[Rfam]
Shown here is a 114-nucleotide RNA from Strongyloides stercoralis, a member of the family "Potassium channel RNA editing signal". Rfam's curators write: This family represents a group of sequences related to the human potassium channel Kv1.1 hairpin element which directs the efficient modification of an adenosine to inosine by an adenosine deaminase acting on RNA (ADAR). The ADAR modification causes an isoleucine/valine recoding event which lies in the ion-conducting pore of the potassium channel.
RNA sequence: GUAGGAUAUGGAGAUAGUGUUCCUUCAACAACCAUGGGAAAAAUUAUAGCUUCAGCUGCUAUAAUGUCAGGUGUUUUAGUUCUUGCAUUACCUAUUACUAUUAUUGUUGAUAAU
Numbered sequence: 001g002u003a004g005g006a007u008a009u010g011g012a013g014a015u016a017g018u019g020u021u022c023c024u025u026c027a028a029c030a031a032c033c034a035u036g037g038g039a040a041a042a043a044u045u046a047u048a049g050c051u052u053c054a055g056c057u058g059c060u061a062u063a064a065u066g067u068c069a070g071g072u073g074u075u076u077u078a079g080u081u082c083u084u085g086c087a088u089u090a091c092c093u094a095u096u097a098c099u100a101u102u103a104u105u106g107u108u109g110a111u112a113a114u
Base pairs, nucleotide, nucleotide: 001114002113004111008107009106010105011104013102014101015100016099018097019096021094037077038076039075040074051061
Rfam links the family to the GO term adenosine to inosine editing. The match comes from Rfam's covariance-model search (52 bits).